[Rfam]
RNA sequence: AGAGGAGGCCUUUCAGGCAUCCUCUCCUAUAAACUUUCACGGGCUGACCUUCGGGUCGGCCCUUUUUUUGUGCCAAA
Numbered sequence: 001a002g003a004g005g006a007g008g009c010c011u012u013u014c015a016g017g018c019a020u021c022c023u024c025u026c027c028u029a030u031a032a033a034c035u036u037u038c039a040c041g042g043g044c045u046g047a048c049c050u051u052c053g054g055g056u057c058g059g060c061c062c063u064u065u066u067u068u069u070g071u072g073c074c075a076a077a
Base pairs, nucleotide, nucleotide: 008018009017010016011015041062042061043060044059045058046057047056048055049054
Rfam assigns this 77-nucleotide sequence from Sphingobium phenoxybenzoativorans to the family "Makes More Granules Regulator RNA (mmgR)".
Rfam classes the family as a small RNA.
Rfam describes the family as follows. SuhB later renamed mmgR (makes more granules regulator) was a putative non-coding RNA found multiple times in the Agrobacterium tumefaciens genome and related alpha-proteobacteria.
The base pairs follow the family's consensus structure.